Shown here is a 75-nucleotide RNA sequence from Blomia tropicalis, a member of the family "mir-124 microRNA precursor family". The family has 122 seed sequences and 2,215 matches in Rfam 15.1. A reference for the family is Lai et al. (2003), "Computational identification of Drosophila microRNA genes", Genome Biol. The base pairs follow the family's consensus structure, which was predicted with PFOLD. The match comes from Rfam's covariance-model search (62 bits).
RNA sequence: UACUCUCCGUGUUCACUGCCCGCCUCAAUGUGUCAUAUUCAAUAAUCAUAAGGCACGCGGUGAAUGCCAAGAGUU
Numbered sequence: 001u002a003c004u005c006u007c008c009g010u011g012u013u014c015a016c017u018g019c020c021c022g023c024c025u026c027a028a029u030g031u032g033u034c035a036u037a038u039u040c041a042a043u044a045a046u047c048a049u050a051a052g053g054c055a056c057g058c059g060g061u062g063a064a065u066g067c068c069a070a071g072a073g074u075u
Stems, first nucleotide, its partner, number of pairs: 003073004009067008018058002023053003029050004